[Rfam]
RNA sequence: ACUUCAUCGAGAGUGGUUGAGGGAUCGGCCCUAUGACACCACGACAACCUGCCCGAAGAGGCAAGGUGCCAAAUCCGACGAACGAAUCGAAAGAUGAGGA
Numbered sequence: 001a002c003u004u005c006a007u008c009g010a011g012a013g014u015g016g017u018u019g020a021g022g023g024a025u026c027g028g029c030c031c032u033a034u035g036a037c038a039c040c041a042c043g044a045c046a047a048c049c050u051g052c053c054c055g056a057a058g059a060g061g062c063a064a065g066g067u068g069c070c071a072a073a074u075c076c077g078a079c080g081a082a083c084g085a086a087u088c089g090a091a092a093g094a095u096g097a098g099g100a
Stems, first nucleotide, its partner, number of pairs: 002099007013042005021031003025078004043070001045068002048066002050063004074092001079089003
Notes:
A member of the RNA family "SAM riboswitch aptamer (S box leader)" from Ruminococcaceae bacterium AF10-16, 100 nucleotides long. NCBI's taxonomy places the organism under Bacteria, Bacillati, Bacillota, Eubacteriales, Oscillospiraceae.